[Rfam]
RNA: S10-Clostridia ribosomal protein leader
RNA sequence: GGAAUGCGAUGAUGUAGAAGGUUGCUAAGCAUUGCUUGGGUAAUUUCUACGGAGUAUGCAACAUCUAGAAUGGGGCGACGA
Numbered sequence: 001g002g003a004a005u006g007c008g009a010u011g012a013u014g015u016a017g018a019a020g021g022u023u024g025c026u027a028a029g030c031a032u033u034g035c036u037u038g039g040g041u042a043a044u045u046u047c048u049a050c051g052g053a054g055u056a057u058g059c060a061a062c063a064u065c066u067a068g069a070a071u072g073g074g075g076c077g078a079c080g081a
Stems, first nucleotide, its partner, number of pairs: 014050003019046003025039005057080002059077001064075003